[Rfam]
RNA sequence: GUGCUGUGAUGACUGCUGUCUUGGUUUCGCUUGUCUCUGAAUUCCAGUGAUGACAUAUACUCUUGGCUGUCUGAGCAU
Numbered sequence: 001g002u003g004c005u006g007u008g009a010u011g012a013c014u015g016c017u018g019u020c021u022u023g024g025u026u027u028c029g030c031u032u033g034u035c036u037c038u039g040a041a042u043u044c045c046a047g048u049g050a051u052g053a054c055a056u057a058u059a060c061u062c063u064u065g066g067c068u069g070u071c072u073g074a075g076c077a078u
Base pairs, nucleotide, nucleotide: 001078002077003076004075
Small nucleolar RNA SNORD53/SNORD92: a 78-nucleotide sequence from Pogona vitticeps. The pairing is the family consensus, mapped onto this sequence. The literature on the family includes a 1996 paper in Cell by Kiss-Laszlo et al., "Site-specific ribose methylation of preribosomal RNA: a novel function for small nucleolar RNAs". The organism belongs to Pogona, within Eukaryota. A search with the family's covariance model found it, with a score of 78 bits.